[Rfam]
RNA sequence: ACUGGGAGCGUGGCGUCUCCUGUGACGCGGCUACUUGUGGAUAGGAUUGCGGACUGAUUUGAGGGCGGGAGUUCUGUACGCUGGCCCAGGCCAUGUUGACGGGGCGUCCGCACUCAGCUGGCCGUCAAUAUGAGAGUCGUCCGAGACAUUCAGGUUAGCCAAGGAGAGACACAUCGAGCGAGGGGUGAAAACCAGCAGCUAAGAGUCUCCGCGGCUAGCAGUAGUGGGAUAGCGUCCCGGAGUGGACUGCCAGUGCCAGCUCGACCAAUACAGUCACACCGUAAUUUAA
Dot-bracket structure: (.((((((........)))))....(((........)))).).(((((((((..(((((...((.((((....(((..((((....(((.((((.(...((((((((((.((((..(((((((((.(((.((((.(((......))).)))).)))..(...)..(((((......(((....(((....)))....)))....))))).)))))))))...))))))...))))))))).)))).)))..)))).))))))).)).....)))))..)))))))))..
RNA: Metazoan signal recognition particle RNA